Overview:
The family of this 104-nucleotide RNA sequence from Eubacterium callanderi is "SAM riboswitch aptamer (S box leader)". The family is grouped with related families in Rfam's "SAM clan". The source organism's lineage runs through Bacteria, Bacillati, Bacillota, Eubacteriaceae and Eubacterium. Gene Ontology term of the family: regulation of gene expression. Pairs were carried over by alignment from the consensus structure, which is taken from published work.
RNA sequence: GAAUUAUCAAGAGUGGUAGAGGGAACUGGCCCAAUGAAACCCGGCAACCUGCGUAAGCGUGGUGCCAAAUCCAGCAUUUCUUUUCAUGAAAUGAAAGAUAAUCU
Numbered sequence: 001g002a003a004u005u006a007u008c009a010a011g012a013g014u015g016g017u018a019g020a021g022g023g024a025a026c027u028g029g030c031c032c033a034a035u036g037a038a039a040c041c042c043g044g045c046a047a048c049c050u051g052c053g054u055a056a057g058c059g060u061g062g063u064g065c066c067a068a069a070u071c072c073a074g075c076a077u078u079u080c081u082u083u084u085c086a087u088g089a090a091a092u093g094a095a096a097g098a099u100a101a102u103c104u
Stems, first nucleotide, its partner, number of pairs: 001104001003102006013042001015041003021032003026074004043066004048062002050059003070096001075093006